This 117-nucleotide sequence from Lactobacillus selangorensis belongs to the Rfam family "PyrR binding site". The base pairs follow the family's consensus structure, which is taken from published work. The family's RNA type in Rfam is cis-regulatory element.
[Rfam]
RNA sequence: AGAUCCUUUAACAUUAGUCCCGUGAGGCUAGUAAGGUGAAUUGGUCCGGUGGCAGCAGUCUAGCCAUAAACGGAUCACUCACAAUUCGCUUGCCGCAUGGUAAGCGAAUUUUUUUGU
Numbered sequence: 001a002g003a004u005c006c007u008u009u010a011a012c013a014u015u016a017g018u019c020c021c022g023u024g025a026g027g028c029u030a031g032u033a034a035g036g037u038g039a040a041u042u043g044g045u046c047c048g049g050u051g052g053c054a055g056c057a058g059u060c061u062a063g064c065c066a067u068a069a070a071c072g073g074a075u076c077a078c079u080c081a082c083a084a085u086u087c088g089c090u091u092g093c094c095g096c097a098u099g100g101u102a103a104g105c106g107a108a109u110u111u112u113u114u115u116g117u
Base pairs, nucleotide, nucleotide: 005036006035007034008033014031015030016029017028018027019026040079042077043076044075045074046073047072048071050069052067081112083110084109085108086107087106088105089104090103091102092101093100094099